[Rfam]
RNA sequence: UGCACAAGUAGGAUAAUCCUUACCUGUUCUUGGUGUUGGUUUUUUUUUUUUUUUUUUUUUGGAGGGCAGAUUGGAACACGAUUAUUAGAGUUCCCAUGAUAUUAACGUCUUUUCAUAAUCAAGACUUGCAACACCCUGCUUGUUCUGAUCUGAU
Numbered sequence: 001u002g003c004a005c006a007a008g009u010a011g012g013a014u015a016a017u018c019c020u021u022a023c024c025u026g027u028u029c030u031u032g033g034u035g036u037u038g039g040u041u042u043u044u045u046u047u048u049u050u051u052u053u054u055u056u057u058u059u060u061g062g063a064g065g066g067c068a069g070a071u072u073g074g075a076a077c078a079c080g081a082u083u084a085u086u087a088g089a090g091u092u093c094c095c096a097u098g099a100u101a102u103u104a105a106c107g108u109c110u111u112u113u114c115a116u117a118a119u120c121a122a123g124a125c126u127u128g129c130a131a132c133a134c135c136c137u138g139c140u141u142g143u144u145c146u147g148a149u150c151u152g153a154u
Stems, first nucleotide, its partner, number of pairs: 024069003028066004098111002101108002115143004120138002123135001
About this RNA:
The family of this 154-nucleotide RNA from Rhinolophus ferrumequinum is "U8 small nucleolar RNA". By type it is a C/D-box small nucleolar RNA. The organism belongs to Rhinolophus, within Eukaryota. The base pairs follow the family's consensus structure, which is taken from published work. It scores 66 bits against the family's covariance model.